Rfam assigns this 108-nucleotide RNA from Paenisporosarcina cavernae to the family "SAM riboswitch aptamer (S box leader)". Taxonomically the source falls in Paenisporosarcina (Bacteria, Bacillota, Caryophanales, Caryophanaceae).
RNA sequence: CUCUUAUUAAGAGUGGUGGAGGGAAGUGCCCUAUGAAGCCCGGCAACCGUCAUACUAUGUAUGAAAUGGUGCCAAUUCACUCAACGUUAAUGCGUUGAAAGAUGAGAG
Numbered sequence: 001c002u003c004u005u006a007u008u009a010a011g012a013g014u015g016g017u018g019g020a021g022g023g024a025a026g027u028g029c030c031c032u033a034u035g036a037a038g039c040c041c042g043g044c045a046a047c048c049g050u051c052a053u054a055c056u057a058u059g060u061a062u063g064a065a066a067u068g069g070u071g072c073c074a075a076u077u078c079a080c081u082c083a084a085c086g087u088u089a090a091u092g093c094g095u096u097g098a099a100a101g102a103u104g105a106g107a108g
Stems, first nucleotide, its partner, number of pairs: 001108008013041001015040003021031003025081004042073004047069002050064003077100001082097006